[Rfam]
Shown here is a 76-nucleotide sequence from Geobacter argillaceus, a member of the family "c-di-GMP-I riboswitch aptamer". The family's consensus secondary structure is taken from published work. A search with the family's covariance model found it, with a score of 51 bits.
RNA sequence: AAACGAUAAUACUAAACCAUCUGUAAAGAUGGGACGGAAAGCCUAAGGGUCUUACUGAGACAGCCGGGUCGCCGAA
Numbered sequence: 001a002a003a004c005g006a007u008a009a010u011a012c013u014a015a016a017c018c019a020u021c022u023g024u025a026a027a028g029a030u031g032g033g034a035c036g037g038a039a040a041g042c043c044u045a046a047g048g049g050u051c052u053u054a055c056u057g058a059g060a061c062a063g064c065c066g067g068g069u070c071g072c073c074g075a076a
Base pairs, nucleotide, nucleotide: 012037013036017032018031019030020029021028022027041069042068043067047065048064049061050060051059